[Rfam]
RNA sequence: CAGUGGGACACUCCUCCCCAACGAGGAGCUUUUGCCUGAAAGGGUAACACAU
Numbered sequence: 001c002a003g004u005g006g007g008a009c010a011c012u013c014c015u016c017c018c019c020a021a022c023g024a025g026g027a028g029c030u031u032u033u034g035c036c037u038g039a040a041a042g043g044g045u046a047a048c049a050c051a052u
Stems, first nucleotide, its partner, number of pairs: 011028006032047006

Rfam assigns this 52-nucleotide sequence from Paracoccus jeotgali to the family "serC leader". A reference for the family is Corbino et al. (2005), "Evidence for a second class of S-adenosylmethionine riboswitches and other regulatory RNA motifs in alpha-proteobacteria", Genome Biol. Taxonomically the source falls in Paracoccus (Bacteria, Pseudomonadati, Pseudomonadota, Alphaproteobacteria). By type it is a cis-regulatory leader.